[Rfam]
RNA sequence: GGUUGCAAGUUUGAGGCCAAAGCAGAAGAGCUUACAGAACAGCCUGUCAGAUUUGAACAAAUCUGCAAGUUCUGCU
Numbered sequence: 001g002g003u004u005g006c007a008a009g010u011u012u013g014a015g016g017c018c019a020a021a022g023c024a025g026a027a028g029a030g031c032u033u034a035c036a037g038a039a040c041a042g043c044c045u046g047u048c049a050g051a052u053u054u055g056a057a058c059a060a061a062u063c064u065g066c067a068a069g070u071u072c073u074g075c076u
Base pairs, nucleotide, nucleotide: 015044016043017042021076022075023074024073025072026071027070028040048065049064050063051062052061053060054059
Rfam assigns this 76-nucleotide RNA from Crocodylus porosus to the family "Mammalian CPEB3 ribozyme". It scores 37 bits against the family's covariance model. The base pairs follow the family's consensus structure, which is taken from published work.